Background: Shown here is a 97-nucleotide RNA from Leucobacter soli, a member of the family "Bacterial small signal recognition particle RNA". It scores 67 bits against the family's covariance model. Rfam links the family to the GO terms SRP-dependent cotranslational protein targeting to membrane, signal sequence recognition and signal recognition particle, plasma membrane targeting.

RNA sequence: UAAGGCCCCUCACGUGGCGAUAUCCCGGUGAACUCCCCCAGGCUGGAAACAGAGCAAGGGUAGCCGGGCUCUAUCGGGUGCGUGAGGGGUCUUUCGU
Numbered sequence: 001u002a003a004g005g006c007c008c009c010u011c012a013c014g015u016g017g018c019g020a021u022a023u024c025c026c027g028g029u030g031a032a033c034u035c036c037c038c039c040a041g042g043c044u045g046g047a048a049a050c051a052g053a054g055c056a057a058g059g060g061u062a063g064c065c066g067g068g069c070u071c072u073a074u075c076g077g078g079u080g081c082g083u084g085a086g087g088g089g090u091c092u093u094u095c096g097u
Stems, first nucleotide, its partner, number of pairs: 004091011015078001018076005024068006035060003043052003